Annotation: MIR2617 microRNA precursor family: an 85-nucleotide RNA from Medicago truncatula.

RNA sequence: AUGUAGUGUGACAUGCCCGUUUGGGAAUUACUCUGAUGCAUGUUUAUUAAUUAAUUGAUUUUGGGAAACGGGGUGUUACAAUACU
Dot-bracket structure: ..(((.((((((((.((((((.............................................)))))))))))))).))).